About this RNA:
Shown here is a 127-nucleotide RNA sequence from Serratia ficaria, a member of the family "RtT RNA".

RNA sequence: AUCUCUCCGUAUUGGGGGAGGAUGAGAAGCUUCGACAAGGUUCGAGUCUCACGCAGUGAGACAACGCGCUUCAGCGCGGCCCGCAGGGCGAGGAGCGCAGCGACGAGUCAUCCUUCCCCCACCACCA
Numbered sequence: 001a002u003c004u005c006u007c008c009g010u011a012u013u014g015g016g017g018g019a020g021g022a023u024g025a026g027a028a029g030c031u032u033c034g035a036c037a038a039g040g041u042u043c044g045a046g047u048c049u050c051a052c053g054c055a056g057u058g059a060g061a062c063a064a065c066g067c068g069c070u071u072c073a074g075c076g077c078g079g080c081c082c083g084c085a086g087g088g089c090g091a092g093g094a095g096c097g098c099a100g101c102g103a104c105g106a107g108u109c110a111u112c113c114u115u116c117c118c119c120c121a122c123c124a125c126c127a
Stems, first nucleotide, its partner, number of pairs: 015118007023110001033090002036087001041085001043083002048058001065078005
For this family Rfam cites "A novel RNA product of the tyrT operon of Escherichia coli" (Bosl and Kersten, Nucleic Acids Res, 1991). It is annotated as a cis-regulatory element. From the family's description: This family represents a bacterial cis-regulatory element known as RtT RNA. The exact function of RtT is unknown although it is thought that it may be involved in changing the cellular response in relation to amino acid starvation.